U4atac minor spliceosomal RNA: a 120-nucleotide RNA from Ceutorhynchus assimilis. U4atac is an essential component of the minor U12-type spliceosome complex which is required for removal of the rarer class of eukaryotic introns (AT-AC, U12-type). The family has 61 seed sequences and 1,648 matches in Rfam 15.1. The literature on the family includes a 2005 paper in RNA by Lorkovic et al., "Evolutionary conservation of minor U12-type spliceosome between plants and humans". The family's consensus secondary structure is taken from published work.
RNA sequence: ACCUUCCUUGUCUAGGGGAGCAGAGUGUUCAAUGAUCGUUUAGUGAGGAUACUUCUGCUGACACCCUAUAUUGAAAAAUUACCGGCACCCGCACAUUGUGCGAGUGCAAUUUUUGGGAGC
Numbered sequence: 001a002c003c004u005u006c007c008u009u010g011u012c013u014a015g016g017g018g019a020g021c022a023g024a025g026u027g028u029u030c031a032a033u034g035a036u037c038g039u040u041u042a043g044u045g046a047g048g049a050u051a052c053u054u055c056u057g058c059u060g061a062c063a064c065c066c067u068a069u070a071u072u073g074a075a076a077a078a079u080u081a082c083c084g085g086c087a088c089c090c091g092c093a094c095a096u097u098g099u100g101c102g103a104g105u106g107c108a109a110u111u112u113u114u115g116g117g118a119g120c
Base pairs, nucleotide, nucleotide: 005019006018007017008016009015020058021057022056023055024053025052026051027050028049029048030047037043085107086106087105088104090102091101092100093099094098